[Rfam]
RNA sequence: CUCUUAUCCGGAGUGGUGGAGGGACUGGCCCUGUGAAGCCCGGCAACCAGCUUUUGCAUUUACCGAAAGUAUGGUGCUAAUUCCUGCAGAAGUUAUCUUCUGACAGAUAAGAG
Numbered sequence: 001c002u003c004u005u006a007u008c009c010g011g012a013g014u015g016g017u018g019g020a021g022g023g024a025c026u027g028g029c030c031c032u033g034u035g036a037a038g039c040c041c042g043g044c045a046a047c048c049a050g051c052u053u054u055u056g057c058a059u060u061u062a063c064c065g066a067a068a069g070u071a072u073g074g075u076g077c078u079a080a081u082u083c084c085u086g087c088a089g090a091a092g093u094u095a096u097c098u099u100c101u102g103a104c105a106g107a108u109a110a111g112a113g
Base pairs, nucleotide, nucleotide: 001113002112003111004110005109006108007107008106013041015040016039017038021031022030023029025086027084028083042078043077044076045075047074048073050070051069052068053067054066055065056064082105087102088101089100090099091098092097
The family of this 113-nucleotide RNA sequence from Desulfallas thermosapovorans is "SAM riboswitch aptamer (S box leader)". The source organism's lineage runs through Bacteria, Bacillota, Desulfallaceae, Desulfallas and Desulfallas thermosapovorans. The match comes from Rfam's covariance-model search (89 bits). Its family is annotated with regulation of gene expression in the Gene Ontology.